[Rfam]
RNA: nhaA-I RNA
RNA sequence: GGGUGUUCGCCAACGGUCGGCGGGCAGGUUUGGUAGCAUCGGUCGGGCCGCCGGUG
Number, nucleotide and partner (000 for none) at each position: 001g000002g000003g000004u000005g025006u024007u023008c022009g021010c020011c019012a000013a000014c000015g000016g000017u000018c000019g011020g010021c009022g008023g007024g006025c005026a000027g000028g000029u000030u000031u000032g000033g000034u000035a000036g000037c056038a055039u054040c053041g052042g051043u050044c000045g000046g000047g000048c000049c000050g043051c042052c041053g040054g039055u038056g037